[Rfam]
Nucleotides: 144
Stems, first nucleotide, its partner, number of pairs: 003142002006139003010135006018127009028117006
Number, partner (000 for none) and nucleotide at each position: 001000u002000u003142u004141u005000u006139a007138a008137a009000u010135u011134u012133u013132c014131a015130u016000c017000c018127a019126u020125u021124u022123c023122u024121a025120u026119u027000g028117u029116u030115a031114a032113a033112a034000c035000u036000a037000g038000u039000u040000u041000c042000a043000c044000u045000g046000a047000c048000a049000a050000a051000a052000u053000a054000a055000c056000c057000a058000u059000a060000c061000a062000a063000u064000g065000a066000c067000a068000c069000g070000u071000g072000a073000c074000a075000u076000c077000c078000c079000a080000c081000g082000u083000g084000u085000a086000u087000c088000u089000c090000a091000u092000g093000u094000u095000g096000a097000u098000g099000u100000a101000c102000g103000a104000a105000g106000a107000c108000c109000a110000g111000c112033u113032u114031u115030u116029a117028a118000c119026a120025g121024u122023a123022g124021a125020a126019a127018u128000a129000a130015a131014u132013g133012a134011a135010a136000u137008u138007u139006u140000u141004a142003a143000c144000a